[Rfam]
Rfam assigns this 152-nucleotide RNA sequence from Anaerosporobacter mobilis to the family "Clostridiales-1 RNA". By type it is a small RNA. Rfam 15.1 lists 1,172 matches to the family in 137 species.
RNA sequence: GGAUACUAGGGUCAAAAGGUCAUGUGUUUCAUAUAUGCAUAAAAAACAUGACGUUGCUACCGCAGAGCAUGAGAAAGUAGGCCGAACAGGGUGGUUUUUGAGUGAUUUUAGGAUUGUGGGAGCAUGAAGUGCGUAAUAAUCCGUAGGUAUUA
Numbered sequence: 001g002g003a004u005a006c007u008a009g010g011g012u013c014a015a016a017a018g019g020u021c022a023u024g025u026g027u028u029u030c031a032u033a034u035a036u037g038c039a040u041a042a043a044a045a046a047c048a049u050g051a052c053g054u055u056g057c058u059a060c061c062g063c064a065g066a067g068c069a070u071g072a073g074a075a076a077g078u079a080g081g082c083c084g085a086a087c088a089g090g091g092u093g094g095u096u097u098u099u100g101a102g103u104g105a106u107u108u109u110a111g112g113a114u115u116g117u118g119g120g121a122g123c124a125u126g127a128a129g130u131g132c133g134u135a136a137u138a139a140u141c142c143g144u145a146g147g148u149a150u151u152a
Stems, first nucleotide, its partner, number of pairs: 002151006010061003016055002019052007027044003064108003068104003073099004080092001082090002111142007122132004